A member of the RNA family "radC RNA", 145 nucleotides long. The family's RNA type in Rfam is cis-regulatory element. The sequence is in the family's curated seed alignment.

RNA sequence: AACCCGAGGUACGGAUCGCUGUUAUCGACAGCACUUUCCCAGGUAGCCAGAACCUUCAAGGCUACGUUACUUCGAUGAUGGUUCUCCCCAAGUGCGAUUAGCGUUCGGUGGCUCGCACGGUGACCGUUGCUACGGUGAUGAACGC
Numbered sequence: 001a002a003c004c005c006g007a008g009g010u011a012c013g014g015a016u017c018g019c020u021g022u023u024a025u026c027g028a029c030a031g032c033a034c035u036u037u038c039c040c041a042g043g044u045a046g047c048c049a050g051a052a053c054c055u056u057c058a059a060g061g062c063u064a065c066g067u068u069a070c071u072u073c074g075a076u077g078a079u080g081g082u083u084c085u086c087c088c089c090a091a092g093u094g095c096g097a098u099u100a101g102c103g104u105u106c107g108g109u110g111g112c113u114c115g116c117a118c119g120g121u122g123a124c125c126g127u128u129g130c131u132a133c134g135g136u137g138a139u140g141a142a143c144g145c
Base pairs, nucleotide, nucleotide: 011037013035014034018032019031020030021029022028023027043065044064045063046062047061048060051083052082053081054080066079067078068077069076114144115143120139121138123136124135125134126133127132